RNA sequence: AACAUGCUCCCUUAGAUCCAUCUUUGUGGAAGUCCGCUUAUGCUGAGUCCUGCUAACUGCUCAUUUUGGGCUUUAGAAGUUCCAGCUAAGAGACAACCAGCAACUUUUUUGGUUGUACAGUCAAAGGUGCUUGAGUCAUUGGCAUGUGAGACUAAUAUACCUGCACGUUUGUCUUGGCAUUUUGAUGGCCGUGGUUUCCUAACCACAUGCCACCAUCAGAAUUUAGCAAAUGUGCGGACAUA
Number, nucleotide and partner (000 for none) at each position: 001a000002a147003c146004a145005u144006g143007c142008u141009c000010c000011c135012u134013u133014a132015g131016a000017u000018c000019c129020a128021u127022c126023u125024u124025u123026g122027u099028g098029g097030a000031a000032g094033u000034c000035c000036g000037c090038u089039u088040a000041u000042g086043c085044u084045g083046a000047g082048u000049c000050c079051u078052g000053c076054u000055a000056a073057c000058u000059g071060c070061u069062c068063a000064u000065u000066u000067u000068g062069g061070g060071c059072u000073u056074u000075a000076g053077a000078a051079g050080u000081u000082c047083c045084a044085g043086c042087u000088a039089a038090g037091a000092g000093a000094c032095a000096a000097c029098c028099a027100g116101c115102a114103a113104c112105u111106u000107u000108u000109u000110u000111g105112g104113u103114u102115g101116u100117a000118c000119a000120g000121u000122c026123a025124a024125a023126g022127g021128u020129g019130c000131u015132u014133g013134a012135g011136u000137c000138a000139u000140u000141g008142g007143c006144a005145u004146g003147u002148g000149a000150g000151a000152c000153u000154a000155a000156u000157a000158u000159a000160c000161c237162u236163g235164c234165a233166c000167g000168u230169u000170u228171g227172u226173c000174u000175u000176g000177g000178c000179a000180u000181u220182u219183u218184g217185a216186u215187g214188g213189c000190c000191g000192u212193g211194g210195u000196u000197u000198c000199c000200u000201a000202a000203c000204c000205a000206c000207a000208u000209g000210c194211c193212a192213c188214c187215a186216u185217c184218a183219g182220a181221a000222u000223u000224u000225a000226g172227c171228a170229a000230a168231u000232g000233u165234g164235c163236g162237g161238a000239c000240a000241u000242a000
Small nucleolar RNA SNORA53: a 242-nucleotide sequence from Xenopus tropicalis. Rfam links the family to the GO terms nucleolus and RNA processing. Rfam describes the family as follows. The snoRNA ACA53 belongs to the H/ACA family of pseudouridylation guide snoRNAs. The organism belongs to Silurana, within Eukaryota. Rfam 15.1 lists 1,090 matches to the family in 800 species. A search with the family's covariance model found it, with a score of 171 bits. Rfam classes the family as an H/ACA-box small nucleolar RNA.